[Rfam]
RNA sequence: UUGUCCGGGGAUCGCCCUCCACCAGCGUGUUACGCCCGUGGAGGCGAUUGUG
Numbered sequence: 001u002u003g004u005c006c007g008g009g010g011a012u013c014g015c016c017c018u019c020c021a022c023c024a025g026c027g028u029g030u031u032a033c034g035c036c037c038g039u040g041g042a043g044g045c046g047a048u049u050g051u052g
Base pairs, nucleotide, nucleotide: 016044017043018042019041020040021039022038025035026034027033028032
Record summary
The record is a 52-nucleotide RNA sequence from Ruegeria pomeroyi, which matches "ffh sRNA" in Rfam. It is one of the family's seed sequences. The base pairs follow the family's consensus structure, which is taken from published work.